A member of the RNA family "Glutamine riboswitch aptamer (glnA leader)" from Leptolyngbya boryana, 58 nucleotides long. A reference for the family is Ames and Breaker (2011), "Bacterial aptamers that selectively bind glutamine", RNA Biol. Pairs were carried over by alignment from the consensus structure, which is taken from published work. A search with the family's covariance model found it, with a score of 58 bits.
RNA sequence: AACGUUCAUCUCUGGUAACUAGAGACGGAAGUAAGGAGUUCUCCUGAAGGAACGCGCC
Numbered sequence: 001a002a003c004g005u006u007c008a009u010c011u012c013u014g015g016u017a018a019c020u021a022g023a024g025a026c027g028g029a030a031g032u033a034a035g036g037a038g039u040u041c042u043c044c045u046g047a048a049g050g051a052a053c054g055c056g057c058c
Base pairs, nucleotide, nucleotide: 003054004053005052006051007050009025010024011023012022013021028055034045035044036043
The organism belongs to Leptolyngbya boryana, within Bacteria. Rfam links the family to the GO term glutamine binding.